RNA sequence: GCAUGGGAUAGCCUUUCUAAAUGGUUUAUUAAGCAAUUCUAUUUUACCAAGACUAUCGUAACCAUGCAAAAAAGCAACUCGGCAAACGCGUUCUUUUUUUUGUAU
Numbered sequence: 001g002c003a004u005g006g007g008a009u010a011g012c013c014u015u016u017c018u019a020a021a022u023g024g025u026u027u028a029u030u031a032a033g034c035a036a037u038u039c040u041a042u043u044u045u046a047c048c049a050a051g052a053c054u055a056u057c058g059u060a061a062c063c064a065u066g067c068a069a070a071a072a073a074g075c076a077a078c079u080c081g082g083c084a085a086a087c088g089c090g091u092u093c094u095u096u097u098u099u100u101u102g103u104a105u
Stems, first nucleotide, its partner, number of pairs: 004060002007057005016052003022049004030041002033038001064105009074094001076092003